[Rfam]
RNA sequence: GCUGAGGAGUGAUGACAAUGAAAGGCCGAAUUGCAGUGCCUCCAGCUAACAGUUUGCUCUCCUUGGAGGCACGAUGACAAAAGUCCUUGGAAGCGAAUCAUUGGUCUGACCUCAGU
Numbered sequence: 001g002c003u004g005a006g007g008a009g010u011g012a013u014g015a016c017a018a019u020g021a022a023a024g025g026c027c028g029a030a031u032u033g034c035a036g037u038g039c040c041u042c043c044a045g046c047u048a049a050c051a052g053u054u055u056g057c058u059c060u061c062c063u064u065g066g067a068g069g070c071a072c073g074a075u076g077a078c079a080a081a082a083g084u085c086c087u088u089g090g091a092a093g094c095g096a097a098u099c100a101u102u103g104g105u106c107u108g109a110c111c112u113c114a115g116u
Base pairs, nucleotide, nucleotide: 001116002115003114004113005112006111007110014106015105016104025034026033035102036101037100038099041096042095043093046090047089048088049087052072053071055069058066059065073086
RNA: Small nucleolar RNA SNORD89
Organism: Upupa epops